This 101-nucleotide RNA from Peptostreptococcus stomatis belongs to the Rfam family "SAM riboswitch aptamer (S box leader)". Taxonomically the source falls in Peptostreptococcus stomatis (Bacteria, Bacillati, Clostridia, Peptostreptococcaceae).

RNA sequence: ACCUUAUCAAGAGUGGCUGAGGGACAGGCCCUAUGAAGCCCGGCAACCGGAAUAAUUUACGGUGCUAAAUCCUACAAGAUGUAUAUCUUGAAAGAUGAGGU
Numbered sequence: 001a002c003c004u005u006a007u008c009a010a011g012a013g014u015g016g017c018u019g020a021g022g023g024a025c026a027g028g029c030c031c032u033a034u035g036a037a038g039c040c041c042g043g044c045a046a047c048c049g050g051a052a053u054a055a056u057u058u059a060c061g062g063u064g065c066u067a068a069a070u071c072c073u074a075c076a077a078g079a080u081g082u083a084u085a086u087c088u089u090g091a092a093a094g095a096u097g098a099g100g101u
Stems, first nucleotide, its partner, number of pairs: 001101008013041001015040003021031003026073003042066004047062002049058003070093001075090006